[Rfam]
RNA: Small nucleolar RNA ZL8
Organism: Sapajus apella
Nucleotides: 079
Stems, first nucleotide, its partner, number of pairs: 003078004015068003019064003024054004029049004034044003
Number, partner (000 for none) and nucleotide at each position: 001000u002000u003078g004077g005076a006075g007000u008000g009000g010000u011000a012000a013000u014000g015068a016067u017066c018000u019064g020063g021062u022000u023000a024054g025053a026052g027051a028000g029049u030048c031047u032046c033000u034044g035043a036042g037000c038000u039000u040000u041000u042036c043035u044034c045000u046032g047031a048030g049029g050000a051027u052026c053025u054024u055000u056000g057000a058000a059000a060000c061000c062021a063020c064019c065000u066017g067016a068015u069000a070000a071000u072000a073000c074000u075006c076005u077004c078003c079000a